[Rfam]
RNA sequence: CGCAUAUUUCGCCCAGGCGGAGCUCGACCGCCGAUCGAAAUCAUAAAGGCAUUCAUCGACGAGCACCGGGAGACCUUUGGGGUCGAGCCGCUCUGUGAAGUGAUGCAGAUCGCCCCG
Number, nucleotide and partner (000 for none) at each position: 001c000002g000003c000004a000005u000006a000007u000008u000009u000010c000011g000012c000013c000014c000015a000016g032017g031018c030019g029020g028021a000022g000023c000024u000025c000026g000027a000028c020029c019030g018031c017032c016033g000034a000035u000036c000037g000038a000039a000040a000041u000042c000043a000044u000045a000046a000047a000048g000049g000050c000051a000052u000053u000054c000055a000056u000057c000058g000059a000060c000061g000062a000063g000064c000065a000066c000067c000068g000069g000070g000071a000072g000073a000074c000075c000076u000077u000078u117079g116080g115081g114082g113083u000084c000085g000086a000087g000088c000089c112090g111091c000092u109093c108094u107095g106096u105097g104098a000099a000100g000101u000102g000103a000104u097105g096106c095107a094108g093109a092110u000111c090112g089113c082114c081115c080116c079117g078
This 117-nucleotide sequence from Noviherbaspirillum autotrophicum belongs to the Rfam family "ALIL pseudoknot". The family's RNA type in Rfam is cis-regulatory element. NCBI's taxonomy places the organism under Bacteria, Pseudomonadota, Betaproteobacteria, Burkholderiales, Noviherbaspirillum.